[Rfam]
RNA sequence: AAGAGGUGUAGGACUUAGCUAGUUCUGUGAACAGAUUGUGGAAACUGCAUGUUCACAGUGGCUAAGUUCCGCUCCUUUG
Numbered sequence: 001a002a003g004a005g006g007u008g009u010a011g012g013a014c015u016u017a018g019c020u021a022g023u024u025c026u027g028u029g030a031a032c033a034g035a036u037u038g039u040g041g042a043a044a045c046u047g048c049a050u051g052u053u054c055a056c057a058g059u060g061g062c063u064a065a066g067u068u069c070c071g072c073u074c075c076u077u078u079g
Base pairs, nucleotide, nucleotide: 011069012068013067014066015065016064017063018062019061020060027056028055029054030053031052032051033050
Shown here is a 79-nucleotide RNA from Polypterus senegalus, a member of the family "mir-27 microRNA precursor family". It scores 68 bits against the family's covariance model. Pairs were carried over by alignment from the consensus structure, which was predicted with RNAalifold. The family has 82 seed sequences and 1,440 matches in Rfam 15.1. The source organism's lineage runs through Eukaryota, Opisthokonta, Deuterostomia, Teleostomi and Polypterus.